[Rfam]
Record summary
Small nucleolar RNA Z118/Z121/Z120: a 103-nucleotide RNA sequence from Miscanthus lutarioriparius.
RNA sequence: UAUUUGCCAUGAUGACUACUAUUAGGACGGUAUCUGAAGGGGGUGGCUUUUAAGUGUACCUCUUCUGAUUAUUCCAAGACUGAAUAUGGUUUCUGAGCAAAUC
Numbered sequence: 001u002a003u004u005u006g007c008c009a010u011g012a013u014g015a016c017u018a019c020u021a022u023u024a025g026g027a028c029g030g031u032a033u034c035u036g037a038a039g040g041g042g043g044u045g046g047c048u049u050u051u052a053a054g055u056g057u058a059c060c061u062c063u064u065c066u067g068a069u070u071a072u073u074c075c076a077a078g079a080c081u082g083a084a085u086a087u088g089g090u091u092u093c094u095g096a097g098c099a100a101a102u103c
Stems, first nucleotide, its partner, number of pairs: 002102006038064006
The organism belongs to Miscanthus, within Eukaryota. It is annotated as a C/D-box small nucleolar RNA. The base pairs follow the family's consensus structure, which was predicted with PFOLD.